[Rfam]
RNA: Small nucleolar RNA SNORD2
RNA sequence: GAGUGAAAUGAUGGUAUUGCAUCUUUCGGGACAGACAUGUUUAUGGUGACAACUCUUCAUCACUGAUCACUC
Numbered sequence: 001g002a003g004u005g006a007a008a009u010g011a012u013g014g015u016a017u018u019g020c021a022u023c024u025u026u027c028g029g030g031a032c033a034g035a036c037a038u039g040u041u042u043a044u045g046g047u048g049a050c051a052a053c054u055c056u057u058c059a060u061c062a063c064u065g066a067u068c069a070c071u072c
Stems, first nucleotide, its partner, number of pairs: 001072006